[Rfam]
RNA: FuFi-1 RNA
RNA sequence: CCUAUCAGCUAUUGGCUUUAAAUUAGCAGAACUAAAACUGCUUAAGUGAUAGGACAUUCUAUAGAAAGAAUUGCCCUAAGAAAUUCUAAGAAAAAUUAAUUUUAGAUUUGAAAACCAGUUUUCUGUGCUAGUAAAGGUAAAAUUAAUUUAACUUUGCAAAAUGUAAAAAGUUAAAAAAUUUAGGUAAGGACUAUCAAAGCUUAGGGAUUUGAUAGUCUUUA
Numbered sequence: 001c002c003u004a005u006c007a008g009c010u011a012u013u014g015g016c017u018u019u020a021a022a023u024u025a026g027c028a029g030a031a032c033u034a035a036a037a038c039u040g041c042u043u044a045a046g047u048g049a050u051a052g053g054a055c056a057u058u059c060u061a062u063a064g065a066a067a068g069a070a071u072u073g074c075c076c077u078a079a080g081a082a083a084u085u086c087u088a089a090g091a092a093a094a095a096u097u098a099a100u101u102u103u104a105g106a107u108u109u110g111a112a113a114a115c116c117a118g119u120u121u122u123c124u125g126u127g128c129u130a131g132u133a134a135a136g137g138u139a140a141a142a143u144u145a146a147u148u149u150a151a152c153u154u155u156g157c158a159a160a161a162u163g164u165a166a167a168a169a170g171u172u173a174a175a176a177a178a179u180u181u182a183g184g185u186a187a188g189g190a191c192u193a194u195c196a197a198a199g200c201u202u203a204g205g206g207a208u209u210u211g212a213u214a215g216u217c218u219u220u221a
Base pairs, nucleotide, nucleotide: 001053002052003051004050005049006048007047025042026041027040028039029038032183033182034181035180036179054164055163056162057161058160067087068086069085070084071083072082074206075205076204077203078202079201080200088154089153090152093149094148095147096146097145098144099143100142101141102140103139104138188218189217190216191215192214193213194212195211196210197209198208